The family of this 113-nucleotide sequence from Swaminathania salitolerans is "SAM-I/IV (S-adenosyl methionine) riboswitch aptamer".
RNA sequence: ACCCUGCAUCAAGAGCCGGAAACCGUUUUUCCGGCGCCAACCUGCUCCCGGGCAAGGUGGUAUCUCCGGCAAGCCGGGGAGAUGUGGCCGCUCCGGCAAUCUCGGGACAUGCC
Numbered sequence: 001a002c003c004c005u006g007c008a009u010c011a012a013g014a015g016c017c018g019g020a021a022a023c024c025g026u027u028u029u030u031c032c033g034g035c036g037c038c039a040a041c042c043u044g045c046u047c048c049c050g051g052g053c054a055a056g057g058u059g060g061u062a063u064c065u066c067c068g069g070c071a072a073g074c075c076g077g078g079g080a081g082a083u084g085u086g087g088c089c090g091c092u093c094c095g096g097c098a099a100u101c102u103c104g105g106g107a108c109a110u111g112c113c
Base pairs, nucleotide, nucleotide: 006085007084008083009082010081015035016034017033018032019031020030021029022028036061037060038059041057042056043055044053045052046051087097088096089095090094

The match comes from Rfam's covariance-model search (48 bits).